Shown here is a 131-nucleotide RNA sequence from Kryptolebias marmoratus, a member of the family "Small Cajal body specific RNA 8". A search with the family's covariance model found it, with a score of 117 bits. A reference for the family is Huttenhofer et al. (2001), "RNomics: an experimental approach that identifies 201 candidates for novel, small, non-messenger RNAs in mouse", EMBO J. Its family is annotated with Cajal body, nucleolus and RNA processing in the Gene Ontology. It is annotated as a small Cajal body RNA. Rfam describes the family as follows. scaRNAs are a specific class of small nuclear RNAs which localise to the Cajal bodies and guide the modification of RNA polymerase II transcribed spliceosomal RNAs U1, U2, U4, U5 and U12. U92 belong to the H/ACA box class of guide RNAs as it has the predicted hairpin-hinge-hairpin-tail structure, conserved H/ACA-box motifs and is found associated with GAR1. The family's consensus secondary structure is taken from published work.
RNA sequence: GGGGAGGCAGAUACCCGGGCAGCCCGGAGCCGUGGUCUGUCUGUCACUGGUUCUCCCCAAAGCAUCCCUGCUCUCUGAUGACCGCGGCGAAUUGAGGGAAAUCGCCACGGACAGAUACGGAGCAGACACUC
Numbered sequence: 001g002g003g004g005a006g007g008c009a010g011a012u013a014c015c016c017g018g019g020c021a022g023c024c025c026g027g028a029g030c031c032g033u034g035g036u037c038u039g040u041c042u043g044u045c046a047c048u049g050g051u052u053c054u055c056c057c058c059a060a061a062g063c064a065u066c067c068c069u070g071c072u073c074u075c076u077g078a079u080g081a082c083c084g085c086g087g088c089g090a091a092u093u094g095a096g097g098g099a100a101a102u103c104g105c106c107a108c109g110g111a112c113a114g115a116u117a118c119g120g121a122g123c124a125g126a127c128a129c130u131c
Stems, first nucleotide, its partner, number of pairs: 002057006016043003022037001024035002068125007082110003087105004